[Rfam]
RNA sequence: GAGAGUAGGCCUCUCGCAGUCGAUUUACAGGAGUAGGCUGCAAACCACUGUAAGCGGCAAUUGCUAAGAGUAUUGGUCGUGAGCGUUACAGAAAAGGCGUAAAUAUGCAUCAGGU
Numbered sequence: 001g002a003g004a005g006u007a008g009g010c011c012u013c014u015c016g017c018a019g020u021c022g023a024u025u026u027a028c029a030g031g032a033g034u035a036g037g038c039u040g041c042a043a044a045c046c047a048c049u050g051u052a053a054g055c056g057g058c059a060a061u062u063g064c065u066a067a068g069a070g071u072a073u074u075g076g077u078c079g080u081g082a083g084c085g086u087u088a089c090a091g092a093a094a095a096g097g098c099g100u101a102a103a104u105a106u107g108c109a110u111c112a113g114g115u
Stems, first nucleotide, its partner, number of pairs: 001015005016041006023034004046114001048091006054080002057077002062072003096111002099108003
Shown here is a 115-nucleotide RNA sequence from Pseudolycoriella hygida, a member of the family "Group II catalytic intron D1-D4-2".
Pairs were carried over by alignment from the consensus structure.
The organism belongs to Pseudolycoriella, within Eukaryota.
Gene Ontology term of the family: Group II intron splicing.
The family has 144 seed sequences and 1,231 matches in Rfam 15.1.
Group II introns are found in rRNA, tRNA and mRNA of organelles in fungi, plants and protists, and also in mRNA in bacteria.